RNA: Small nucleolar RNA SNORD101
Organism: Acanthisitta chloris
RNA sequence: GUUUGGGUGAUGACUCAAAAGUUUGUCGGAACCCCCUUCACUCCUUCUAUGAGUGAGAACUGCUGUCUGACAAAC
Numbered sequence: 001g002u003u004u005g006g007g008u009g010a011u012g013a014c015u016c017a018a019a020a021g022u023u024u025g026u027c028g029g030a031a032c033c034c035c036c037u038u039c040a041c042u043c044c045u046u047c048u049a050u051g052a053g054u055g056a057g058a059a060c061u062g063c064u065g066u067c068u069g070a071c072a073a074a075c
Stems, first nucleotide, its partner, number of pairs: 001075005